[Rfam]
Shown here is a 248-nucleotide RNA sequence from Rummeliibacillus sp. TYF005, a member of the family "BsrG". Rfam's curators write: bsrE, bsrG and bsrH pair through intermolecular interactions with antisense sRNAs. They form type I toxin/antitoxin system that includes an mRNA encoding for a short, toxic peptide (bsrE, bsrG and bsrH) and an antitoxin that is comprised of an antisense RNA. bsrG encodes a 39-amino-acid toxin, and the 180 nucleotide antisense sRNA called SR4 acts as the antitoxin (they overlap by 123 nucleotides). SR4 interaction with the 3'UTR of bsrG RNA promotes bsrG degradation and inhibits its translation. BsrG interferes with cell envelope biosynthesis, causes membrane invaginations and delocalisation of the cell wall synthesis and initiates autolysis. bsrE RNA encodes 30 amino-acid toxin peptide. The family has 6 seed sequences and 614 matches in Rfam 15.1. NCBI's taxonomy places the organism under Bacteria, Bacillota, Caryophanales, Caryophanaceae, Rummeliibacillus. On this family, see Saito et al., Gene 2008: "Novel small RNA-encoding genes in the intergenic regions of Bacillus subtilis". Rfam classes the family as a small RNA. The match comes from Rfam's covariance-model search (84 bits).
RNA sequence: UUUAUAGUUGGUGCUCAAGGGUGGUUGGCUCCCUCCCGUUAGAAAGGGGGUGGUGCCUAUGACAGUAUAUGAAGCAUUAAUGUUUGCAAUUGCAUUUGCUGUAUUGAUGUUGUCAAUAAUUUCAUUUAAAAACCAAAAAAAUAACCCAUCCUUGAGUUAGCGGCUCAGAUGGGUUAUUCCCUCAUUUAGCCAAUCCCCUUAAGGGAACCAACUAUCUACUUGACCGUUCGAUGCCACAACAUCGGCGG
Numbered sequence: 001u002u003u004a005u006a007g008u009u010g011g012u013g014c015u016c017a018a019g020g021g022u023g024g025u026u027g028g029c030u031c032c033c034u035c036c037c038g039u040u041a042g043a044a045a046g047g048g049g050g051u052g053g054u055g056c057c058u059a060u061g062a063c064a065g066u067a068u069a070u071g072a073a074g075c076a077u078u079a080a081u082g083u084u085u086g087c088a089a090u091u092g093c094a095u096u097u098g099c100u101g102u103a104u105u106g107a108u109g110u111u112g113u114c115a116a117u118a119a120u121u122u123c124a125u126u127u128a129a130a131a132a133c134c135a136a137a138a139a140a141a142u143a144a145c146c147c148a149u150c151c152u153u154g155a156g157u158u159a160g161c162g163g164c165u166c167a168g169a170u171g172g173g174u175u176a177u178u179c180c181c182u183c184a185u186u187u188a189g190c191c192a193a194u195c196c197c198c199u200u201a202a203g204g205g206a207a208c209c210a211a212c213u214a215u216c217u218a219c220u221u222g223a224c225c226g227u228u229c230g231a232u233g234c235c236a237c238a239a240c241a242u243c244g245g246c247g248g
Stems, first nucleotide, its partner, number of pairs: 001218001004215002007212003011208001012192002014156008023146004030053002033050005061123002064120001066118002074087003168180001194207001196205002224248004229244005